[Rfam]
RNA: Group II catalytic intron D1-D4-3
RNA sequence: UUAUCAGUAAUGACAAAGUGGCAUGGUGGUUCUUUUGAGCUUGCAAACAGAAACUUGAUACAAGGCUAAAUGGUGGAUGAGAUUGUGUAUUAGGUCAAAGUCCAAUAAACGUAAAACCAAGACAGUAAAUCAAGAUAUUGUGAAAGAAAAUUAACUA
Numbered sequence: 001u002u003a004u005c006a007g008u009a010a011u012g013a014c015a016a017a018g019u020g021g022c023a024u025g026g027u028g029g030u031u032c033u034u035u036u037g038a039g040c041u042u043g044c045a046a047a048c049a050g051a052a053a054c055u056u057g058a059u060a061c062a063a064g065g066c067u068a069a070a071u072g073g074u075g076g077a078u079g080a081g082a083u084u085g086u087g088u089a090u091u092a093g094g095u096c097a098a099a100g101u102c103c104a105a106u107a108a109a110c111g112u113a114a115a116a117c118c119a120a121g122a123c124a125g126u127a128a129a130u131c132a133a134g135a136u137a138u139u140g141u142g143a144a145a146g147a148a149a150a151u152u153a154a155c156u157a
Stems, first nucleotide, its partner, number of pairs: 001016002004013003027157003032146006038139002042135001054134006065126003071119004075103004081096004